serC leader: a 53-nucleotide RNA sequence from Rhizomicrobium palustre.
By type it is a cis-regulatory leader.
The source organism's lineage runs through Bacteria, Pseudomonadota, Alphaproteobacteria, Micropepsales and Rhizomicrobium.
[Rfam]
RNA sequence: CAGUGGGCCACGCCUCCCCAACGAGGUGCUAACAUUCUGGAAGGAAUGUCGGA
Numbered sequence: 001c002a003g004u005g006g007g008c009c010a011c012g013c014c015u016c017c018c019c020a021a022c023g024a025g026g027u028g029c030u031a032a033c034a035u036u037c038u039g040g041a042a043g044g045a046a047u048g049u050c051g052g053a
Stems, first nucleotide, its partner, number of pairs: 011028006033048006

Pairs were carried over by alignment from the consensus structure. Rfam describes the family as follows. This family is a putative regulatory RNA structure that is found upstream of the serC-serA operon in some alpha-proteobacteria. The final stem of the structure overlaps the ribosome binding site of the serC reading frame. It scores 54 bits against the family's covariance model.